This 84-nucleotide sequence from Prunus avium belongs to the Rfam family "Small nucleolar RNA SNORD25".
Gene Ontology terms of the family: RNA processing and nucleolus.
A search with the family's covariance model found it, with a score of 56 bits.
RNA sequence: GGAAACAGUGAUGAUCCUACAGACCUGUAAUGAUUUGCAGAUAUGAUUGCAAAUCUUUAAGAACAUCUAAGGGACUGAGUUCUG
Numbered sequence: 001g002g003a004a005a006c007a008g009u010g011a012u013g014a015u016c017c018u019a020c021a022g023a024c025c026u027g028u029a030a031u032g033a034u035u036u037g038c039a040g041a042u043a044u045g046a047u048u049g050c051a052a053a054u055c056u057u058u059a060a061g062a063a064c065a066u067c068u069a070a071g072g073g074a075c076u077g078a079g080u081u082c083u084g
Base pairs, nucleotide, nucleotide: 002083004081005080006079